[Rfam]
RNA sequence: AAUCCCCCACUUUAUUGAAGCCCUGCGUUCCGCGCUGGGUACUUUGUAGGCAAAGUGGGGGAUU
Numbered sequence: 001a002a003u004c005c006c007c008c009a010c011u012u013u014a015u016u017g018a019a020g021c022c023c024u025g026c027g028u029u030c031c032g033c034g035c036u037g038g039g040u041a042c043u044u045u046g047u048a049g050g051c052a053a054a055g056u057g058g059g060g061g062a063u064u
Stems, first nucleotide, its partner, number of pairs: 001064010012053001015050002020040004025035004
Overview
This 64-nucleotide RNA belongs to the Rfam family "DUF3800-VIII RNA". The sequence is in the family's curated seed alignment. Rfam classes the family as a small RNA. Rfam describes the family as follows. Bacteroidetes, Cyanobacteria, Firmicutes, Planctomycetes (1 example), Proteobacteria, Tenericutes (1 example).